Rfam assigns this 115-nucleotide RNA sequence from Phyllostomus discolor to the family "Small nucleolar RNA SNORA32". ACA32 is a member of the H/ACA class of snoRNA that guide the sites of modification of uridines to pseudouridines. The base pairs follow the family's consensus structure, which was predicted with RNAfold.

[Rfam]
RNA sequence: UGGAAAUCCUAAUGAACCUGCAGUUUCUCAUGUGCCGUGGACAUGACCACGAAACAUUUUUCCACUAGAUUUUCUUUCUGCUUCAUCGCUAGCAUUCAGCCUACUGGGGACAUUU
Numbered sequence: 001u002g003g004a005a006a007u008c009c010u011a012a013u014g015a016a017c018c019u020g021c022a023g024u025u026u027c028u029c030a031u032g033u034g035c036c037g038u039g040g041a042c043a044u045g046a047c048c049a050c051g052a053a054a055c056a057u058u059u060u061u062c063c064a065c066u067a068g069a070u071u072u073u074c075u076u077u078c079u080g081c082u083u084c085a086u087c088g089c090u091a092g093c094a095u096u097c098a099g100c101c102u103a104c105u106g107g108g109g110a111c112a113u114u115u
Stems, first nucleotide, its partner, number of pairs: 003047001006044002009040003020035003061108004068101001070099002079094003